[Rfam]
The record is a 113-nucleotide RNA sequence from Collichthys lucidus, which matches "Potassium channel RNA editing signal" in Rfam. Rfam 15.1 lists 14,095 matches to the family in 1,000 species. Rfam describes the family as follows. This family represents a group of sequences related to the human potassium channel Kv1.1 hairpin element which directs the efficient modification of an adenosine to inosine by an adenosine deaminase acting on RNA (ADAR). NCBI's taxonomy places the organism under Eukaryota, Eumetazoa, Neopterygii, Sciaenidae, Collichthys. Rfam classes the family as a cis-regulatory element.
RNA sequence: GCAGGUACGGCGACAUGGUUCCCAACACCAUUGCGGGGAAGAUCUUCGGCUCGAUAUGCUCCCUCAGCGGCGUGCUGGUGAUCGCCCUGCCGGUGCCGGUCAUUGUGUCCAAC
Numbered sequence: 001g002c003a004g005g006u007a008c009g010g011c012g013a014c015a016u017g018g019u020u021c022c023c024a025a026c027a028c029c030a031u032u033g034c035g036g037g038g039a040a041g042a043u044c045u046u047c048g049g050c051u052c053g054a055u056a057u058g059c060u061c062c063c064u065c066a067g068c069g070g071c072g073u074g075c076u077g078g079u080g081a082u083c084g085c086c087c088u089g090c091c092g093g094u095g096c097c098g099g100u101c102a103u104u105g106u107g108u109c110c111a112a113c
Base pairs, nucleotide, nucleotide: 001113004110005109006107007106008105009104010103012101013100014099017096020093036076037075039073048062049061